[Rfam]
RNA sequence: CUCCAUGAAUCCGUGGCACCUGCCGGCUGUGGCAGCCUCCCUUCCUAGACAUGGAAGAGCAACACCUCGCUAUUUGGCAAGGCUCGCACUGCACCGUCGGUGGCAGAGCUGACUGGAGCGAGGGACACGC
Numbered sequence: 001c002u003c004c005a006u007g008a009a010u011c012c013g014u015g016g017c018a019c020c021u022g023c024c025g026g027c028u029g030u031g032g033c034a035g036c037c038u039c040c041c042u043u044c045c046u047a048g049a050c051a052u053g054g055a056a057g058a059g060c061a062a063c064a065c066c067u068c069g070c071u072a073u074u075u076g077g078c079a080a081g082g083c084u085c086g087c088a089c090u091g092c093a094c095c096g097u098c099g100g101u102g103g104c105a106g107a108g109c110u111g112a113c114u115g116g117a118g119c120g121a122g123g124g125a126c127a128c129g130c
Stems, first nucleotide, its partner, number of pairs: 002055006015041002018038001020035005069126001071124001074121003078116001080114001083106002088101004

Shown here is a 130-nucleotide sequence from Alligator sinensis, a member of the family "Small nucleolar RNA SNORA24". Gene Ontology terms of the family: RNA processing and nucleolus. It is annotated as an H/ACA-box small nucleolar RNA. About the family: ACA24 is a member of the H/ACA class of snoRNA that guide the sites of modification of uridines to pseudouridines. A search with the family's covariance model found it, with a score of 58 bits.